[Rfam]
Nucleotides: 062
Base pairs, nucleotide, nucleotide: 010052011051013049014048015047016046028045029044030043031042032041033040
Number, partner (000 for none) and nucleotide at each position: 001000a002000c003000a004000a005000g006000u007000g008000a009000a010052c011051c012000c013049u014048u015047c016046a017000c018000u019000a020000c021000g022000g023000a024000u025000c026000g027000u028045u029044c030043g031042g032041c033040a034000c035000g036000u037000a038000c039000c040033u041032g042031c043030c044029g045028a046016u047015g048014a049013a050000a051011g052010g053000a054000c055000a056000g057000c058000a059000a060000u061000u062000a